[Rfam]
RNA: c-di-AMP riboswitch aptamer (ydaO/yuaA leader)
Organism: Janibacter indicus
RNA sequence: ACCACCAGGUCGCCGAGUCCUGCCAGCCGGGUGGUCCCUGAACACCACGGCAGGAGCGGGGGACCCAUUUUUUCGGCCCCAGUGCCUCGGGGUGAAGUCCACGCGGUCGCAUGACCGCUGGGCGGGAUGCUCAUCUCCAUCCCAACCCGACAGCUAACUCCGCAGGCGGAGGAGAUCCCAUGU
Numbered sequence: 001a002c003c004a005c006c007a008g009g010u011c012g013c014c015g016a017g018u019c020c021u022g023c024c025a026g027c028c029g030g031g032u033g034g035u036c037c038c039u040g041a042a043c044a045c046c047a048c049g050g051c052a053g054g055a056g057c058g059g060g061g062g063a064c065c066c067a068u069u070u071u072u073u074c075g076g077c078c079c080c081a082g083u084g085c086c087u088c089g090g091g092g093u094g095a096a097g098u099c100c101a102c103g104c105g106g107u108c109g110c111a112u113g114a115c116c117g118c119u120g121g122g123c124g125g126g127a128u129g130c131u132c133a134u135c136u137c138c139a140u141c142c143c144a145a146c147c148c149g150a151c152a153g154c155u156a157a158c159u160c161c162g163c164a165g166g167c168g169g170a171g172g173a174g175a176u177c178c179c180a181u182g183u
Base pairs, nucleotide, nucleotide: 011168012167013166014165018055019054020053021052022051023050024049056163057162058161059160060159061158066089090148091147092146098122099121100120101119125142126141127140128139